[Rfam]
RNA sequence: AGAGGCCCUCCGUGGCUGGGGUGGAAUGCUUGCCUCAUCACUGCAGCGACGAAGCAAGUAUUCUGCCAGGCCACUCACGCUGCCCAC
Numbered sequence: 001a002g003a004g005g006c007c008c009u010c011c012g013u014g015g016c017u018g019g020g021g022u023g024g025a026a027u028g029c030u031u032g033c034c035u036c037a038u039c040a041c042u043g044c045a046g047c048g049a050c051g052a053a054g055c056a057a058g059u060a061u062u063c064u065g066c067c068a069g070g071c072c073a074c075u076c077a078c079g080c081u082g083c084c085c086a087c
Stems, first nucleotide, its partner, number of pairs: 004084003012074006020067014038049002041046001
Dot-bracket structure: ...(((.....((((((..((((((((((((((....((.(....).))....)))))))))))))).)))))).......)))...
RNA: mir-9195 microRNA precursor family